Description: Rfam assigns this 111-nucleotide sequence from Pseudohoeflea suaedae to the family "rpsB sRNA". The family's RNA type in Rfam is small RNA. The organism belongs to Pseudohoeflea, within Bacteria. The family has 4 seed sequences and 245 matches in Rfam 15.1. On this family, see Meyer et al., BMC Genomics 2009: "Identification of candidate structured RNAs in the marine organism 'Candidatus Pelagibacter ubique'".

[Rfam]
RNA sequence: CACACGCGGAGCAUGGGACGGUCCGGGAGAAAUCCGGUUCGUUCCGCCGGUGGCGCCUGAAUGGUUCGGGCGCUGACGUUCCGCGGAGGUCCAACCGGAAACAGGAGAAAA
Numbered sequence: 001c002a003c004a005c006g007c008g009g010a011g012c013a014u015g016g017g018a019c020g021g022u023c024c025g026g027g028a029g030a031a032a033u034c035c036g037g038u039u040c041g042u043u044c045c046g047c048c049g050g051u052g053g054c055g056c057c058u059g060a061a062u063g064g065u066u067c068g069g070g071c072g073c074u075g076a077c078g079u080u081c082c083g084c085g086g087a088g089g090u091c092c093a094a095c096c097g098g099a100a101a102c103a104g105g106a107g108a109a110a111a
Stems, first nucleotide, its partner, number of pairs: 001088001003086001005085007015045002024036002027034001052074009